[Rfam]
Nucleotides: 098
Base pairs, nucleotide, nucleotide: 006093009090010089011088012087013086020033021032022031023030035078036077037076038074039073042072044070049065
Number, partner (000 for none) and nucleotide at each position: 001000g002000g003000a004000c005000a006093c007000a008000a009090c010089u011088c012087u013086g014000g015000a016000g017000a018000g019000u020033u021032c022031c023030a024000u025000u026000c027000a028000a029000u030023u031022g032021g033020a034000c035078g036077c037076c038074g039073a040000a041000g042072g043000u044070g045000u046000a047000a048000a049065g050000g051000u052000c053000u054000u055000a056000c057000u058000u059000a060000a061000g062000a063000c064000c065049c066000c067000g068000a069000u070044c071000u072042c073039u074038c075000a076037g077036g078035c079000a080000a081000a082000a083000g084000g085000a086013c087012a088011g089010g090009g091000c092000g093006g094000c095000a096000u097000c098000a
Glycine riboswitch aptamer: a 98-nucleotide sequence from Dialister histaminiformans. The organism belongs to Dialister, within Bacteria. It scores 60 bits against the family's covariance model.